This 108-nucleotide sequence from Acinonyx jubatus belongs to the Rfam family "Y RNA".
Y RNAs are components of the Ro ribonucleoprotein particle (Ro RNP), in association with Ro60 and La proteins.
It is annotated as a non-coding RNA gene.
The family's consensus secondary structure is taken from published work.
RNA sequence: GGCUGGUCUGAAGAUAGUGAGUUAUCUCAAUUGAUUGUUCACAGUUACAGGUUGAACUUCUUGUUCUACUCUUUUGCCCCUCUCACUAUUGCACUUGACUAGUCUUUU
Numbered sequence: 001g002g003c004u005g006g007u008c009u010g011a012a013g014a015u016a017g018u019g020a021g022u023u024a025u026c027u028c029a030a031u032u033g034a035u036u037g038u039u040c041a042c043a044g045u046u047a048c049a050g051g052u053u054g055a056a057c058u059u060c061u062u063g064u065u066c067u068a069c070u071c072u073u074u075u076g077c078c079c080c081u082c083u084c085a086c087u088a089u090u091g092c093a094c095u096u097g098a099c100u101a102g103u104c105u106u107u108u
Stems, first nucleotide, its partner, number of pairs: 001104008010096002015091001016087006043067002